U4 spliceosomal RNA: a 136-nucleotide RNA sequence from Plasmodium falciparum. The organism belongs to Plasmodium falciparum, within Eukaryota.
[Rfam]
RNA sequence: AUCUUUGCGGGAGGGGCAGUAUCGCUGUAAAUGACGACGAACGGAUACGCGAUUAUUGCUAGUUGAAAACUACUCCAAUUCCCGUCUCGAUGCUUGAAAAAGCAGAGAGCAAUUUUUGUAGCCUUUCUUUAUAAAG
Numbered sequence: 001a002u003c004u005u006u007g008c009g010g011g012a013g014g015g016g017c018a019g020u021a022u023c024g025c026u027g028u029a030a031a032u033g034a035c036g037a038c039g040a041a042c043g044g045a046u047a048c049g050c051g052a053u054u055a056u057u058g059c060u061a062g063u064u065g066a067a068a069a070c071u072a073c074u075c076c077a078a079u080u081c082c083c084g085u086c087u088c089g090a091u092g093c094u095u096g097a098a099a100a101a102g103c104a105g106a107g108a109g110c111a112a113u114u115u116u117u118g119u120a121g122c123c124u125u126u127c128u129u130u131a132u133a134a135a136g
Base pairs, nucleotide, nucleotide: 021053022052023051024050025049027048028047029046035043036042084110086109087108088107091104092103093102094101095100123136124135125134126133
Dot-bracket structure: ....................(((((.(((.....((.....))..))))))))..............................(.(((..(((((....)))))..))))............((((......))))